[Rfam]
The record is a 75-nucleotide sequence from Streptomyces cyaneogriseus, which matches "ASpks TB sRNA" in Rfam. The organism belongs to Streptomyces cyaneogriseus, within Bacteria.
RNA sequence: CUUCAGCGAUCCGAGCCACAGCGGCCGUUCCCGGGCGCGUCCCUGUCCGUAGGUGGCGAGCAGCGCCUCGAUCUC
Numbered sequence: 001c002u003u004c005a006g007c008g009a010u011c012c013g014a015g016c017c018a019c020a021g022c023g024g025c026c027g028u029u030c031c032c033g034g035g036c037g038c039g040u041c042c043c044u045g046u047c048c049g050u051a052g053g054u055g056g057c058g059a060g061c062a063g064c065g066c067c068u069c070g071a072u073c074u075c
Base pairs, nucleotide, nucleotide: 015025016024017023032070033069038065039064043060044059047056048055049054